Source information:
A member of the RNA family "mir-1421 microRNA precursor family" from Ornithorhynchus anatinus, 74 nucleotides long. Pairs were carried over by alignment from the consensus structure, which was predicted with RNAalifold. Lineage of the source: Eukaryota > Bilateria > Gnathostomata > Tetrapoda > Ornithorhynchus.

[Rfam]
RNA sequence: UGGUGUGAGCAGGUCACGUGUGGUGCAGCGUGAUAGUGGAAUAUGCUGCAUCGCGUGUGACCUCCCUACACCGC
Dot-bracket structure: ..(((((.(.(((((((((((.(((((...................))))).))))))))))).).)))))...
Numbered sequence: 001u002g003g004u005g006u007g008a009g010c011a012g013g014u015c016a017c018g019u020g021u022g023g024u025g026c027a028g029c030g031u032g033a034u035a036g037u038g039g040a041a042u043a044u045g046c047u048g049c050a051u052c053g054c055g056u057g058u059g060a061c062c063u064c065c066c067u068a069c070a071c072c073g074c
Stems, first nucleotide, its partner, number of pairs: 003071005009065001011063011023051005